About this RNA:
A member of the RNA family "Small nucleolar RNA SNORD121A" from Varanus komodoensis, 84 nucleotides long. Taxonomically the source falls in Varanus (Eukaryota, Bilateria, Tetrapoda, Lepidosauria).
RNA sequence: GGACAGAGGACUGUGAUGUAUUUUUUCCCAAGCACAUAUCUGACAGCUGCAUGUAGAAAUCAACUAUUCCUGAGUCUUCUGGUC
Numbered sequence: 001g002g003a004c005a006g007a008g009g010a011c012u013g014u015g016a017u018g019u020a021u022u023u024u025u026u027c028c029c030a031a032g033c034a035c036a037u038a039u040c041u042g043a044c045a046g047c048u049g050c051a052u053g054u055a056g057a058a059a060u061c062a063a064c065u066a067u068u069c070c071u072g073a074g075u076c077u078u079c080u081g082g083u084c
Stems, first nucleotide, its partner, number of pairs: 001084002004081003008077004

The base pairs follow the family's consensus structure, which was predicted with WAR.